Shown here is a 126-nucleotide RNA from Myotis brandtii, a member of the family "mir-9193 microRNA precursor family". Rfam links the family to the GO terms miRNA-mediated post-transcriptional gene silencing and RISC complex. The match comes from Rfam's covariance-model search (61 bits). NCBI's taxonomy places the organism under Eukaryota, Eumetazoa, Gnathostomata, Teleostomi, Myotis.

[Rfam]
RNA sequence: CGUGCAUCCGUGGGGUCCCUCAGCCCGGCCUGUGCCCUCUCACAAUCGAGGACACAUCAGGGGAUGUCGGAAAGCCAGUUUUGGCCCGAUCCCACAGGCCAGGCUGAGGGACCCCACGGGUGCACG
Numbered sequence: 001c002g003u004g005c006a007u008c009c010g011u012g013g014g015g016u017c018c019c020u021c022a023g024c025c026c027g028g029c030c031u032g033u034g035c036c037c038u039c040u041c042a043c044a045a046u047c048g049a050g051g052a053c054a055c056a057u058c059a060g061g062g063g064a065u066g067u068c069g070g071a072a073a074g075c076c077a078g079u080u081u082u083g084g085c086c087c088g089a090u091c092c093c094a095c096a097g098g099c100c101a102g103g104c105u106g107a108g109g110g111a112c113c114c115c116a117c118g119g120g121u122g123c124a125c126g
Base pairs, nucleotide, nucleotide: 003124004123006121008119009118010117012115013114014113015112016111017110018109019108020107021106022105023104024103025102027100028099029098030097031096032095033094034093